The family of this 60-nucleotide RNA from Marinobacterium sp. LSUCC0821 is "Pseudomonas sRNA P26". It scores 36 bits against the family's covariance model. The literature on the family includes a 2006 paper in Nucleic Acids Res by Livny et al., "Identification of 17 Pseudomonas aeruginosa sRNAs and prediction of sRNA-encoding genes in 10 diverse pathogens using the bioinformatic tool sRNAPredict2". About the family: This small RNA (sRNA) was computationally identified in the genome of the opportunistic pathogen Pseudomonas aeruginosa and its expression verified by northern blot analysis. P26 is conserved across many Gammaproteobacteria species and appears to be consistently located between the DNA directed RNA polymerase (beta subunit) and 50S ribosomal protein L7/L12 genes.
RNA sequence: GACAAGCAGCUUAACGCUGCAUUGUAAGCGUAUGGCUGGUGGCAAAAAUGCCACCGGCCU
Numbered sequence: 001g002a003c004a005a006g007c008a009g010c011u012u013a014a015c016g017c018u019g020c021a022u023u024g025u026a027a028g029c030g031u032a033u034g035g036c037u038g039g040u041g042g043c044a045a046a047a048a049u050g051c052c053a054c055c056g057g058c059c060u
Stems, first nucleotide, its partner, number of pairs: 014031005034059010